[Rfam]
RNA sequence: AAUAGAUUUACUAACUCAUGGGCGGUUCAGUACUCACCCUACCUUUUCUUCGAAAGGGGGUGAUGCUGCAUGACGGUAUUUGAAACGUUAACCAUCAUGAUUAAUUUUUCUGUGUUGAUCGUUGCAGUACUUGCCGUUAACAACACAAAAAAAUAAUCCGCCUAUGAGUUUGAGACCUCGGCGGAUUAUUAUGUCGAUGUACUGACCCCCUUGAAGGGAGUAAGUCUAUUAUGCUGUUAGUGUUGGCGCACUAGCA
Numbered sequence: 001a002a003u004a005g006a007u008u009u010a011c012u013a014a015c016u017c018a019u020g021g022g023c024g025g026u027u028c029a030g031u032a033c034u035c036a037c038c039c040u041a042c043c044u045u046u047u048c049u050u051c052g053a054a055a056g057g058g059g060g061u062g063a064u065g066c067u068g069c070a071u072g073a074c075g076g077u078a079u080u081u082g083a084a085a086c087g088u089u090a091a092c093c094a095u096c097a098u099g100a101u102u103a104a105u106u107u108u109u110c111u112g113u114g115u116u117g118a119u120c121g122u123u124g125c126a127g128u129a130c131u132u133g134c135c136g137u138u139a140a141c142a143a144c145a146c147a148a149a150a151a152a153a154u155a156a157u158c159c160g161c162c163u164a165u166g167a168g169u170u171u172g173a174g175a176c177c178u179c180g181g182c183g184g185a186u187u188a189u190u191a192u193g194u195c196g197a198u199g200u201a202c203u204g205a206c207c208c209c210c211u212u213g214a215a216g217g218g219a220g221u222a223a224g225u226c227u228a229u230u231a232u233g234c235u236g237u238u239a240g241u242g243u244u245g246g247c248g249c250a251c252u253a254g255c256a
Stems, first nucleotide, its partner, number of pairs: 001230005007224003011220001012205001015168008024158004034063003038060002042058007072134001075131004086099002109126001111124002178197003207218003235256009
RNA: BsrG
Organism: Streptohalobacillus salinus